[Rfam]
Background:
Shown here is a 103-nucleotide sequence from Planomicrobium sp. CPCC 101110, a member of the family "TPP riboswitch aptamer (THI element)". The organism belongs to Planomicrobium, within Bacteria. Rfam's curators write: Vitamin B(1) in its active form thiamin pyrophosphate (TPP) is an essential coenzyme that is synthesised by coupling of pyrimidine and thiazole moieties in bacteria. The literature on the family includes a 2002 paper in J Biol Chem by Rodionov et al., "Comparative genomics of thiamin biosynthesis in procaryotes. New genes and regulatory mechanisms".
RNA sequence: GUUGACUACUAGGGGAGCCGCAUAUUGGCUGAGACGGGCAUUGCUCGGACCCUUUGAACCUGAUCUGGACCAUGCCAGCGGAGGGAAGUAGUGUGCGAAUGCU
Numbered sequence: 001g002u003u004g005a006c007u008a009c010u011a012g013g014g015g016a017g018c019c020g021c022a023u024a025u026u027g028g029c030u031g032a033g034a035c036g037g038g039c040a041u042u043g044c045u046c047g048g049a050c051c052c053u054u055u056g057a058a059c060c061u062g063a064u065c066u067g068g069a070c071c072a073u074g075c076c077a078g079c080g081g082a083g084g085g086a087a088g089u090a091g092u093g094u095g096c097g098a099a100u101g102c103u
Base pairs, nucleotide, nucleotide: 006091007090008089009088010087011053012052013051014050017029018028019027020026036046037045038044039043059084060083061082065078066077067076068075